[Rfam]
RNA: Small nucleolar RNA Z152/R70/R12/
Organism: Striga asiatica
RNA sequence: UAUGCUAUGAUGAGAUAAGACACCAUUUAGGUGUUUAUGGGGCAGUGGAUUAAUUUCCGUGAGCCCAUCUAAUUAACGACUUCUCCUUCCACUGAGCAAA
Number, nucleotide and partner (000 for none) at each position: 001u100002a000003u098004g097005c096006u000007a000008u000009g000010a000011u000012g000013a000014g000015a000016u000017a000018a000019g000020a000021c000022a000023c000024c000025a000026u000027u000028u000029a000030g000031g000032u000033g000034u000035u000036u000037a000038u000039g000040g000041g000042g000043c000044a000045g000046u000047g000048g000049a000050u000051u000052a000053a000054u000055u000056u000057c000058c000059g000060u000061g000062a000063g000064c000065c000066c000067a000068u000069c000070u000071a000072a000073u000074u000075a000076a000077c000078g000079a000080c000081u000082u000083c000084u000085c000086c000087u000088u000089c000090c000091a000092c000093u000094g000095a000096g005097c004098a003099a000100a001